[Rfam]
RNA sequence: AUGGCUUCUCUUGAUUUCAUUGUGCCUGUGAGCCUUUUAUGGUUUGUGGGCAGUGUUAAGAAUGUGAAGCAAAAAAUGAUUGUUCCUCUCGCUAUCCAGCGCGGAAUUCUUUUGAUGCGAUUGGACGUCGAGGAACAAAACUU
Numbered sequence: 001a002u003g004g005c006u007u008c009u010c011u012u013g014a015u016u017u018c019a020u021u022g023u024g025c026c027u028g029u030g031a032g033c034c035u036u037u038u039a040u041g042g043u044u045u046g047u048g049g050g051c052a053g054u055g056u057u058a059a060g061a062a063u064g065u066g067a068a069g070c071a072a073a074a075a076a077u078g079a080u081u082g083u084u085c086c087u088c089u090c091g092c093u094a095u096c097c098a099g100c101g102c103g104g105a106a107u108u109c110u111u112u113u114g115a116u117g118c119g120a121u122u123g124g125a126c127g128u129c130g131a132g133g134a135a136c137a138a139a140a141c142u143u
Stems, first nucleotide, its partner, number of pairs: 002073001004070002008066001010064001012058002015055001023052010082136007090127002095125005105113001
Dot-bracket structure: .(.((..(.(.((.(.......((((((((((..........))))))))))..).)).....).)..))..)........(((((((.((...(((((.....(.......).......)))))))..))))))).......

Shown here is a 143-nucleotide RNA sequence from Miscanthus lutarioriparius, a member of the family "Small nucleolar RNA snoR136". The family's RNA type in Rfam is H/ACA-box small nucleolar RNA. Pairs were carried over by alignment from the consensus structure, which was predicted with mfold. The literature on the family includes a 2009 paper in Nucleic Acids Res by Chen and Wu, "Mining small RNA sequencing data: a new approach to identify small nucleolar RNAs in Arabidopsis". It scores 63 bits against the family's covariance model.